The record is a 97-nucleotide RNA from Cloacibacillus sp. An23, which matches "NiCo (Nickel/Cobalt) riboswitch aptamer" in Rfam. The base pairs follow the family's consensus structure, which is taken from published work. Lineage of the source: Bacteria > Thermotogati > Synergistales > Synergistaceae > Cloacibacillus. A reference for the family is Furukawa et al. (2015), "Bacterial riboswitches cooperatively bind Ni(2+) or Co(2+) ions and control expression of heavy metal transporters", Mol Cell.
RNA sequence: ACAGAACAUGGAGCAGGCGACGGCCCUCUGAGGCCGUGGGGCUGGGCCGGGACGACAACCCGGCAGCGGGAGACGGAACAACGCCCGCGGGACCGUU
Numbered sequence: 001a002c003a004g005a006a007c008a009u010g011g012a013g014c015a016g017g018c019g020a021c022g023g024c025c026c027u028c029u030g031a032g033g034c035c036g037u038g039g040g041g042c043u044g045g046g047c048c049g050g051g052a053c054g055a056c057a058a059c060c061c062g063g064c065a066g067c068g069g070g071a072g073a074c075g076g077a078a079c080a081a082c083g084c085c086c087g088c089g090g091g092a093c094c095g096u097u
Stems, first nucleotide, its partner, number of pairs: 008096004014091001016043003020037006046064005066088005